[Rfam]
This 149-nucleotide RNA from Phocaeicola vulgatus belongs to the Rfam family "Group II catalytic intron D1-D4-7".
Lineage of the source: Bacteria > Pseudomonadati > Bacteroidota > Bacteroidia > Phocaeicola vulgatus.
RNA sequence: CCUCCAGUUCCGUCUGGAGUAGCCUACGGACACGUGCAUUGGGAGUAAUCCUUUUGUACGGAGCUGUCCCGACAAGGUAGCCUUUCCAAAAGGAGAAGAUUGAACCGUGAGGGGAAAUCAACGGCUGAUAACACCAUUCAGCACGAGGA
Number, nucleotide and partner (000 for none) at each position: 001c000002c019003u018004c017005c016006a015007g014008u000009u000010c000011c000012g000013u000014c007015u006016g005017g004018a003019g002020u000021a000022g000023c000024c000025u000026a000027c000028g069029g068030a067031c066032a065033c060034g059035u058036g057037c056038a055039u000040u000041g052042g051043g050044a049045g000046u000047a000048a000049u044050c043051c042052u041053u000054u000055u038056g037057u036058a035059c034060g033061g000062a000063g000064c000065u032066g031067u030068c029069c028070c000071g000072a000073c000074a000075a000076g000077g000078u000079a000080g000081c000082c000083u096084u095085u094086c093087c092088a000089a000090a000091a000092g087093g086094a085095g084096a083097a000098g119099a118100u117101u116102g000103a000104a000105c112106c111107g000108u000109g000110a000111g106112g105113g000114g000115a000116a101117a100118u099119c098120a000121a000122c000123g000124g142125c141126u140127g139128a138129u000130a000131a000132c000133a000134c000135c000136a000137u000138u128139c127140a126141g125142c124143a000144c000145g000146a000147g000148g000149a000

Its family is annotated with Group II intron splicing in the Gene Ontology. The base pairs follow the family's consensus structure. About the family: Group II introns are found in rRNA, tRNA and mRNA of organelles in fungi, plants and protists, and also in mRNA in bacteria. On this family, see Bonen and Vogel, Trends Genet 2001: "The ins and outs of group II introns".